[Rfam]
RNA sequence: AGGUAAUGUCUCCUGCACCUCUAUCACCGGAGGCACUCGGUCACACUGUGGGUCAGUAGACCUUAGACGCUUGUCGUCAAGGGUGUGAUGUGAGGUAGGGUUUAAUGCCCU
Numbered sequence: 001a002g003g004u005a006a007u008g009u010c011u012c013c014u015g016c017a018c019c020u021c022u023a024u025c026a027c028c029g030g031a032g033g034c035a036c037u038c039g040g041u042c043a044c045a046c047u048g049u050g051g052g053u054c055a056g057u058a059g060a061c062c063u064u065a066g067a068c069g070c071u072u073g074u075c076g077u078c079a080a081g082g083g084u085g086u087g088a089u090g091u092g093a094g095g096u097a098g099g100g101u102u103u104a105a106u107g108c109c110c111u
Stems, first nucleotide, its partner, number of pairs: 001020004007035007036094004040089008050063005066078004097111005
About this RNA
The family of this 111-nucleotide RNA from Paenibacillus selenitireducens is "epsC RNA". Pairs were carried over by alignment from the consensus structure, which is taken from published work. NCBI's taxonomy places the organism under Bacteria, Bacillati, Bacilli, Paenibacillaceae, Paenibacillus. By type it is a cis-regulatory element. A search with the family's covariance model found it, with a score of 106 bits.